Notes: Shown here is a 61-nucleotide sequence from Ornithinibacillus bavariensis, a member of the family "Ribosomal protein L13 leader". Lineage of the source: Bacteria > Bacillati > Bacillota > Caryophanales > Ornithinibacillus.
[Rfam]
Nucleotides: 061
Stems, first nucleotide, its partner, number of pairs: 006057007021046009
Number, partner (000 for none) and nucleotide at each position: 001000g002000g003000c004000a005000u006057u007056u008055u009054a010053u011052u012051u013000c014000u015000a016000a017000a018000a019000a020000c021046c022045g023044c024043g025042a026041u027040u028039a029038g030000c031000c032000c033000c034000g035000g036000a037000a038029c039028u040027a041026a042025u043024u044023g045022u046021g047000u048000u049000g050000a051012a052011a053010a054009u055008a056007a057006a058000g059000a060000a061000a
About the family: This family is a putative r-protein leader autoregulatory structure found in B. subtilis and other low-GC Gram-positive bacteria. It is located in the 5' untranslated regions of mRNAs encoding the L13-S9 (rplM-rpsI) ribosomal protein operon. It is annotated as a cis-regulatory leader. It scores 44 bits against the family's covariance model. Pairs were carried over by alignment from the consensus structure, which was predicted with CMfinder.